[Rfam]
RNA sequence: UCGUGUGUGAGGAGCAAGUGUAAAUCAAAGAGCGCUUAGGGUGGAAACAAGGUAACACUCCUGAGCGCUUUUUGUU
Numbered sequence: 001u002c003g004u005g006u007g008u009g010a011g012g013a014g015c016a017a018g019u020g021u022a023a024a025u026c027a028a029a030g031a032g033c034g035c036u037u038a039g040g041g042u043g044g045a046a047a048c049a050a051g052g053u054a055a056c057a058c059u060c061c062u063g064a065g066c067g068c069u070u071u072u073u074g075u076u
Base pairs, nucleotide, nucleotide: 027073028072029071030070033067034066038062039061040060041058042057043056